RNA sequence: UUAGCAAAAAGGCAAACCACUCUAAAGAUUGGGACGCAAAGCUACAGGUCUAAGGCGUAACGCUAUGAUGGCUGGGCUGCCUAA
Number, nucleotide and partner (000 for none) at each position: 001u000002u000003a000004g000005c000006a000007a000008a000009a000010a000011g000012g037013c036014a000015a000016a000017c032018c031019a030020c000021u028022c027023u000024a000025a000026a000027g022028a021029u000030u019031g018032g017033g000034a000035c000036g013037c012038a000039a000040a078041g077042c076043u075044a000045c074046a073047g072048g069049u068050c067051u000052a000053a000054g000055g063056c062057g061058u000059a000060a000061c057062g056063c055064u000065a000066u000067g050068a049069u048070g000071g000072c047073u046074g045075g043076g042077c041078u040079g000080c000081c000082u000083a000084a000
The record is an 84-nucleotide sequence from Bacillus sp. J14TS2, which matches "c-di-GMP-I riboswitch aptamer" in Rfam. A search with the family's covariance model found it, with a score of 77 bits. Taxonomically the source falls in Bacillus (Bacteria, Bacillota, Bacilli, Bacillaceae).